A member of the RNA family "Vault RNA" from Branchiostoma floridae, 114 nucleotides long.
The source organism's lineage runs through Eukaryota, Opisthokonta, Eumetazoa, Leptocardii and Branchiostoma.
The family's consensus secondary structure is taken from published work.

RNA sequence: GUGCUGGCUUUGUCGUGUGGGUACUUCGUAAACUCGUUGGUUACAAUUUGUUCUGUCAAAUGCGGGUUCGAAUCCCGCACCCCUUGCGACCCACUGACGCCAUCCGGCACUUUU
Numbered sequence: 001g002u003g004c005u006g007g008c009u010u011u012g013u014c015g016u017g018u019g020g021g022u023a024c025u026u027c028g029u030a031a032a033c034u035c036g037u038u039g040g041u042u043a044c045a046a047u048u049u050g051u052u053c054u055g056u057c058a059a060a061u062g063c064g065g066g067u068u069c070g071a072a073u074c075c076c077g078c079a080c081c082c083c084u085u086g087c088g089a090c091c092c093a094c095u096g097a098c099g100c101c102a103u104c105c106g107g108c109a110c111u112u113u114u
Base pairs, nucleotide, nucleotide: 002109003108004107005106006105007104012098013097014096015095017094018093019092020091025072026071027070028069
By type it is a non-coding RNA gene.